[Rfam]
RNA sequence: CGUAACAAGCAGAAGCGCCCGCUUCUCACCUGGGCCGACUUUAUCGGCGGGUAUAUACGACGGAACAGAACCUUAGCUGUGUUCUAUUUGUCAUCGUAAGAUGUGGGCGAUUGUCGUCCGCAUCUUUUUUGCUUU
Numbered sequence: 001c002g003u004a005a006c007a008a009g010c011a012g013a014a015g016c017g018c019c020c021g022c023u024u025c026u027c028a029c030c031u032g033g034g035c036c037g038a039c040u041u042u043a044u045c046g047g048c049g050g051g052u053a054u055a056u057a058c059g060a061c062g063g064a065a066c067a068g069a070a071c072c073u074u075a076g077c078u079g080u081g082u083u084c085u086a087u088u089u090g091u092c093a094u095c096g097u098a099a100g101a102u103g104u105g106g107g108c109g110a111u112u113g114u115c116g117u118c119c120g121c122a123u124c125u126u127u128u129u130u131g132c133u134u135u
Stems, first nucleotide, its partner, number of pairs: 011026006028052003035047004102122009
RNA: Ribosomal protein L20 leader